A member of the RNA family "A. fumigatus sRNA Afu_254" from Aspergillus nomiae, 155 nucleotides long. NCBI's taxonomy places the organism under Eukaryota, Ascomycota, saccharomyceta, Pezizomycotina, Aspergillus nomiae. Rfam classes the family as a small RNA. A search with the family's covariance model found it, with a score of 80 bits. The family has 6 seed sequences and 185 matches in Rfam 15.1. A reference for the family is Jochl et al. (2008), "Small ncRNA transcriptome analysis from Aspergillus fumigatus suggests a novel mechanism for regulation of protein synthesis", Nucleic Acids Res.

[Rfam]
RNA sequence: UUAGAAUCAAACUACUCUGCUACUUUCAUUCCUUCGAACAAUCCCGUUCAUACCAAUCUCUCUGCAACCAUGACUCCCUGCAGCUGCAACUCUUGCUGCUCCGGCGACUGCAACUCCUGCAACUGCUCCCAGUGCAAGGUAUGCUCUAUCUCUCA
Numbered sequence: 001u002u003a004g005a006a007u008c009a010a011a012c013u014a015c016u017c018u019g020c021u022a023c024u025u026u027c028a029u030u031c032c033u034u035c036g037a038a039c040a041a042u043c044c045c046g047u048u049c050a051u052a053c054c055a056a057u058c059u060c061u062c063u064g065c066a067a068c069c070a071u072g073a074c075u076c077c078c079u080g081c082a083g084c085u086g087c088a089a090c091u092c093u094u095g096c097u098g099c100u101c102c103g104g105c106g107a108c109u110g111c112a113a114c115u116c117c118u119g120c121a122a123c124u125g126c127u128c129c130c131a132g133u134g135c136a137a138g139g140u141a142u143g144c145u146c147u148a149u150c151u152c153u154c155a
Stems, first nucleotide, its partner, number of pairs: 079106003086099003110135003119126002